[Rfam]
RNA sequence: GUCAGCAGUGCCUUAGCAGCACGUAAAUAUUGGUGUUAUGACUGUUAAUAUCUCCAGUAUUAACUGUGCUGCUGAAGUAAGGCUGAC
Numbered sequence: 001g002u003c004a005g006c007a008g009u010g011c012c013u014u015a016g017c018a019g020c021a022c023g024u025a026a027a028u029a030u031u032g033g034u035g036u037u038a039u040g041a042c043u044g045u046u047a048a049u050a051u052c053u054c055c056a057g058u059a060u061u062a063a064c065u066g067u068g069c070u071g072c073u074g075a076a077g078u079a080a081g082g083c084u085g086a087c
Stems, first nucleotide, its partner, number of pairs: 001087006013075011024063001026061008035052001